Rfam assigns this 117-nucleotide RNA from Metabacillus indicus to the family "PyrR binding site". Its family is annotated with pyrimidine nucleobase biosynthetic process and pyrimidine nucleobase transport in the Gene Ontology. The base pairs follow the family's consensus structure, which is taken from published work. From the family's description: This family represents the PyrR binding site and terminator structure. This RNA structure is found upstream of a variety of genes involved in pyrimidine biosynthesis and transport. The alignment also includes a portion of the antiterminator structure.
RNA sequence: UGAACCUUUAAGACAGUCCCGUGAGGCUGAGAAGGAAACGGAUCUUAUGCGCAUAGUCUGCGUAUAUUUAAGCACGCAUCCAAUCCCUCUUGCCAAACGGCAGGAGGGAUUUUCUUG
Numbered sequence: 001u002g003a004a005c006c007u008u009u010a011a012g013a014c015a016g017u018c019c020c021g022u023g024a025g026g027c028u029g030a031g032a033a034g035g036a037a038a039c040g041g042a043u044c045u046u047a048u049g050c051g052c053a054u055a056g057u058c059u060g061c062g063u064a065u066a067u068u069u070a071a072g073c074a075c076g077c078a079u080c081c082a083a084u085c086c087c088u089c090u091u092g093c094c095a096a097a098c099g100g101c102a103g104g105a106g107g108g109a110u111u112u113u114c115u116u117g
Base pairs, nucleotide, nucleotide: 005035006034007033008032009031014029015028016027017026018025046066047065048064049063050062051061052060053059082111083110084109085108086107087106088105089104090103091102092101093100094099